[Rfam]
RNA: A. fumigatus sRNA Afu_309
Organism: Corynespora cassiicola
RNA sequence: ACCUUUUCUUCUACAACGACCUGUGUCCGUUUUCCCGUCCGCCGCUCGCGGCGUGUUCGGUUGAGAACUGGCAGUUCGUCCGAUCCAUGGAGCCACCUUUUUUUCAAUGGUGUCAAUUUCCGGUCGACAGGUCGAAGACGGAUUCACUCGUGUAUAUGAAGCUUGAGCUUGCCGCAAGGUUUGAGCUCGGUGGAUGUGCACGAUGGGGCGGCUGAUUUCAAGUCCUUUGCGAGGCCGUUGGCCGCUGAAGCUUGGGAAAAACCCAGUCUCCUACAUGC
Dot-bracket structure: ................(((((((((((.(.(((((((.((((((....))))).)..)))..)))).).)))........(((((..(((.(((..............))).)))......)))))))))))))............(...((((((........(..(...((....))...)....)......)))))).)....((.(((((........((((..((..((((...))))......))..))))......))))).)).......